[Rfam]
Shown here is a 370-nucleotide RNA sequence from Flavihumibacter petaseus, a member of the family "Bacterial RNase P class A". Rfam classes the family as a ribozyme. Lineage of the source: Bacteria > Bacteroidota > Chitinophagales > Flavihumibacter > Flavihumibacter petaseus. Clan: RNaseP clan. Ribonuclease P (RNase P) is a ubiquitous endoribonuclease, found in archaea, bacteria and eukarya as well as chloroplasts and mitochondria. Its best characterised activity is the generation of mature 5'-ends of tRNAs by cleaving the 5'-leader elements of precursor-tRNAs.

RNA sequence: GCUUCCCUCCGGGCUAUCGCGGUACGGCAACGUAACGAGGAAAGUCCGGACAGCACAGGGCAAUACACCGGCUAACGGCCGGGGGGCGGAGUUCCGUCAACAGAAAGUGCCACAGAAAAUAACUACCCUUUCGGGAAAAGGUGAAAACGUAGUGUAAGAGACUACGGCUUGCUGCAGUAAUGCAGCUCGUGGGUAAACCUUGUAUGCUGAAAUGCCAUGUAUACCGGUGGUUGAGAGCGGCCCGCUCAAUGAUUCUUCGGAAUCAACGCCGGAGGGUAGGCAGAUAGAUCACGGCAGUAAUGCCGUGGCCAGAUAAAUGAUAGCCACUGCGCAGGCAGUACAGAAUCCGGCUUACAGGAGGGAAGUUUUU
Numbered sequence: 001g002c003u004u005c006c007c008u009c010c011g012g013g014c015u016a017u018c019g020c021g022g023u024a025c026g027g028c029a030a031c032g033u034a035a036c037g038a039g040g041a042a043a044g045u046c047c048g049g050a051c052a053g054c055a056c057a058g059g060g061c062a063a064u065a066c067a068c069c070g071g072c073u074a075a076c077g078g079c080c081g082g083g084g085g086g087c088g089g090a091g092u093u094c095c096g097u098c099a100a101c102a103g104a105a106a107g108u109g110c111c112a113c114a115g116a117a118a119a120u121a122a123c124u125a126c127c128c129u130u131u132c133g134g135g136a137a138a139a140g141g142u143g144a145a146a147a148c149g150u151a152g153u154g155u156a157a158g159a160g161a162c163u164a165c166g167g168c169u170u171g172c173u174g175c176a177g178u179a180a181u182g183c184a185g186c187u188c189g190u191g192g193g194u195a196a197a198c199c200u201u202g203u204a205u206g207c208u209g210a211a212a213u214g215c216c217a218u219g220u221a222u223a224c225c226g227g228u229g230g231u232u233g234a235g236a237g238c239g240g241c242c243c244g245c246u247c248a249a250u251g252a253u254u255c256u257u258c259g260g261a262a263u264c265a266a267c268g269c270c271g272g273a274g275g276g277u278a279g280g281c282a283g284a285u286a287g288a289u290c291a292c293g294g295c296a297g298u299a300a301u302g303c304c305g306u307g308g309c310c311a312g313a314u315a316a317a318u319g320a321u322a323g324c325c326a327c328u329g330c331g332c333a334g335g336c337a338g339u340a341c342a343g344a345a346u347c348c349g350g351c352u353u354a355c356a357g358g359a360g361g362g363a364a365g366u367u368u369u370u
Base pairs, nucleotide, nucleotide: 001366002365003364004363005362006361007360008359009358010357011355012325013324014323015322016321017320018319020037021036023034024033025032026031042353043352044351046350047349048348049347050346051209052208053207054206059258060257063205064204065203066202067201068082069081070080071079072078083101085098086097087096088095089094102200103199107198108197109194110193111192123140124139126135127134128133148166149165150164151163152162153161171186172185173184174183175182176181213282214281215280216279224272225271226270227269228268250265251264252263253262254261289308290307291306292305293304294303295302296301